[Rfam]
Shown here is a 327-nucleotide RNA from Melanocharis versteri, a member of the family "7SK RNA". The literature on the family includes a 2002 paper in Curr Biol by Blencowe, "Transcription: surprising role for an elusive small nuclear RNA". Rfam classes the family as a non-coding RNA gene. Rfam 15.1 lists 49,373 matches to the family in 668 species. The source organism's lineage runs through Eukaryota, Opisthokonta, Metazoa, Neoaves and Melanocharis.
RNA sequence: GGAUAUGAGGGCAAUCUGACUGUGAGAUCUGAUAUGCCGUUGAUUGCACGGGUUGAUUUGACUGAUCUGGCUAGCUUAGGCAGGUGUUCCCUUUCUUCCUCAACAUUCCGUGUGUGUUCCCCCUGGAGCUGUGUGCUUGGUUAAUGAGGACAGCCUCCCCACUUGACAUGGUACUGUUCACUGGUCAAGGGUGUGUGGUAGCUGUGCUCCCCUGCUGGAAGCUCUAAGCUCAAGGUCAAUUUGUAGAAGAGUGUAGGGUGGUCAAGUAUCUGAUACUGAAGACACAUCCAAAUGAGAGGCUGCAUGCAGCAGUCUACCAGUGGCUUU
Numbered sequence: 001g002g003a004u005a006u007g008a009g010g011g012c013a014a015u016c017u018g019a020c021u022g023u024g025a026g027a028u029c030u031g032a033u034a035u036g037c038c039g040u041u042g043a044u045u046g047c048a049c050g051g052g053u054u055g056a057u058u059u060g061a062c063u064g065a066u067c068u069g070g071c072u073a074g075c076u077u078a079g080g081c082a083g084g085u086g087u088u089c090c091c092u093u094u095c096u097u098c099c100u101c102a103a104c105a106u107u108c109c110g111u112g113u114g115u116g117u118u119c120c121c122c123c124u125g126g127a128g129c130u131g132u133g134u135g136c137u138u139g140g141u142u143a144a145u146g147a148g149g150a151c152a153g154c155c156u157c158c159c160c161a162c163u164u165g166a167c168a169u170g171g172u173a174c175u176g177u178u179c180a181c182u183g184g185u186c187a188a189g190g191g192u193g194u195g196u197g198g199u200a201g202c203u204g205u206g207c208u209c210c211c212c213u214g215c216u217g218g219a220a221g222c223u224c225u226a227a228g229c230u231c232a233a234g235g236u237c238a239a240u241u242u243g244u245a246g247a248a249g250a251g252u253g254u255a256g257g258g259u260g261g262u263c264a265a266g267u268a269u270c271u272g273a274u275a276c277u278g279a280a281g282a283c284a285c286a287u288c289c290a291a292a293u294g295a296g297a298g299g300c301u302g303c304a305u306g307c308a309g310c311a312g313u314c315u316a317c318c319a320g321u322g323g324c325u326u327u
Base pairs, nucleotide, nucleotide: 001109002108003107006102007101008100009099010098011097013094014093018091024088025087027085028084029083030082031081033079035074037070038069039068042067043066044065045064046062117171118170122165123140124139125138126137128136129135142161148158149157150156201267202266203265207261208260210258211257212256213255214254215253222249223248225246228244229243290327291326292325296318299313300312301311302310303309
The family's consensus secondary structure is taken from published work. 7SK was discovered as an abundant small nuclear RNA in the mid-70s but a possible function has only recently been suggested. Two independent studies have found that 7SK RNA binds the CDK9/cyclin T complex (known as elongation factor P-TEFb). P-TEFb activates transcription by phosphorylating the C-terminal domain of RNA polymerase II. This process is negatively regulated by the 7SK RNP. The secondary structure of 7SK RNA shown here was proposed by Wasserman and Steitz on the basis of chemical modification and enzymatic cleavage experiments. This family contains a number of annotated pseudogenes and 7SK derived repeats. The threshold is artificially high to minimise the pseudogene count.